[Rfam]
RNA sequence: UUGAGCACUUUGCCCUGAGAACUGAAUUCCAUAGAUGGUGUUCAUUAAGAGUUCAUCUAUGGGCUCAGUUCUUCUGGCAAUUGGUUCCGUAUC
Numbered sequence: 001u002u003g004a005g006c007a008c009u010u011u012g013c014c015c016u017g018a019g020a021a022c023u024g025a026a027u028u029c030c031a032u033a034g035a036u037g038g039u040g041u042u043c044a045u046u047a048a049g050a051g052u053u054c055a056u057c058u059a060u061g062g063g064c065u066c067a068g069u070u071c072u073u074c075u076g077g078c079a080a081u082u083g084g085u086u087c088c089g090u091a092u093c
Stems, first nucleotide, its partner, number of pairs: 008084002011079003018072008033058004

Shown here is a 93-nucleotide sequence from Triplophysa tibetana, a member of the family "mir-146 microRNA precursor family". Its family is annotated with miRNA-mediated post-transcriptional gene silencing and RISC complex in the Gene Ontology. The family's consensus secondary structure was predicted with WAR. The family has 33 seed sequences and 1,617 matches in Rfam 15.1. It scores 62 bits against the family's covariance model. The source organism's lineage runs through Eukaryota, Deuterostomia, Craniata, Ostariophysi and Triplophysa.